[Rfam]
RNA sequence: AUUUUUCGUGAUAAGAUCACUCAUAUAUUUUUGAUGAUAUGGUUCAAAAGUUUCUACCAGAUGCCGUAAAUAUCUGACUAUGAGCGAUUCUGUUUAGUUA
Numbered sequence: 001a002u003u004u005u006u007c008g009u010g011a012u013a014a015g016a017u018c019a020c021u022c023a024u025a026u027a028u029u030u031u032u033g034a035u036g037a038u039a040u041g042g043u044u045c046a047a048a049a050g051u052u053u054c055u056a057c058c059a060g061a062u063g064c065c066g067u068a069a070a071u072a073u074c075u076g077a078c079u080a081u082g083a084g085c086g087a088u089u090c091u092g093u094u095u096a097g098u099u100a
Base pairs, nucleotide, nucleotide: 018086020084021083022082023081024080025079029049030048031047032046033045034044058076059075060074061073062072063071
RNA: Purine riboswitch aptamer
Organism: Clostridium polyendosporum